[Rfam]
RNA: RNA Staph. aureus E (RoxS)
Organism: Planococcus lenghuensis
RNA sequence: GUGAAAUAAAUCACAAGCAAACAUACACCCCUUUGUUUGAGCGUGAACAUUUCUCCCAUCCCCUUUGUGUAAUAACAGAAGAAAAGCUUCUUUCCGAGAGGAAGAAGCUUUUCU
Number, nucleotide and partner (000 for none) at each position: 001g000002u000003g053004a052005a051006a050007u049008a000009a000010a000011u046012c045013a044014c043015a000016a000017g000018c039019a038020a037021a036022c035023a034024u000025a000026c000027a000028c000029c000030c000031c000032u000033u000034u023035g022036u021037u020038u019039g018040a000041g000042c000043g014044u013045g012046a011047a000048c000049a007050u006051u005052u004053c003054u000055c000056c000057c000058a000059u000060c000061c000062c000063c000064u000065u000066u000067g000068u000069g000070u000071a000072a000073u000074a000075a000076c000077a000078g000079a000080a000081g000082a000083a111084a110085a109086g108087c107088u106089u105090c104091u103092u102093u101094c000095c000096g000097a000098g000099a000100g000101g093102a092103a091104g090105a089106a088107g087108c086109u085110u084111u083112u000113c000114u000